[Rfam]
RNA sequence: UCCGGUAUGGUGUAGUGGCUAACAUUUCGCGCUCUCAUAACCUGAGAGACUAGUACCGCGGAGCCCAGGGUUCGAUUCCCUGUACCGGAG
Numbered sequence: 001u002c003c004g005g006u007a008u009g010g011u012g013u014a015g016u017g018g019c020u021a022a023c024a025u026u027u028c029g030c031g032c033u034c035u036c037a038u039a040a041c042c043u044g045a046g047a048g049a050c051u052a053g054u055a056c057c058g059c060g061g062a063g064c065c066c067a068g069g070g071u072u073c074g075a076u077u078c079c080c081u082g083u084a085c086c087g088g089a090g
Base pairs, nucleotide, nucleotide: 001089002088003087004086005085006084007083010025011024012023013022027061028060029059030058031057066082067081068080069079070078

Rfam assigns this 90-nucleotide RNA sequence from Fusarium pseudograminearum to the family "tRNA".
Rfam describes the family as follows. Transfer RNA (tRNA) molecules are approximately 80 nucleotides in length.
It scores 47 bits against the family's covariance model.